[Rfam]
RNA sequence: CAGGUCAACUCUGGAGAGCAGCCACCAGAUUGGCUCACCGACGGGGCAGGGUGAAUUUCAGGAAAUCCCGAACCAGGGACAACCUUUCACUCAAACUCUCAGGUUCGAGGACAGAGGGGCGGCA
Numbered sequence: 001c002a003g004g005u006c007a008a009c010u011c012u013g014g015a016g017a018g019c020a021g022c023c024a025c026c027a028g029a030u031u032g033g034c035u036c037a038c039c040g041a042c043g044g045g046g047c048a049g050g051g052u053g054a055a056u057u058u059c060a061g062g063a064a065a066u067c068c069c070g071a072a073c074c075a076g077g078g079a080c081a082a083c084c085u086u087u088c089a090c091u092c093a094a095a096c097u098c099u100c101a102g103g104u105u106c107g108a109g110g111a112c113a114g115a116g117g118g119g120c121g122g123c124a
Stems, first nucleotide, its partner, number of pairs: 006119001009116005020035004037104003040100002044098003050091006
Shown here is a 124-nucleotide RNA sequence from a Solemya velum gill symbiont, a member of the family "Glycine riboswitch aptamer". Rfam describes the family as follows. This family represents the bacterial glycine riboswitch. NCBI's taxonomy places the organism under Bacteria, Pseudomonadati, Pseudomonadota, Gammaproteobacteria, sulfur-oxidizing symbionts.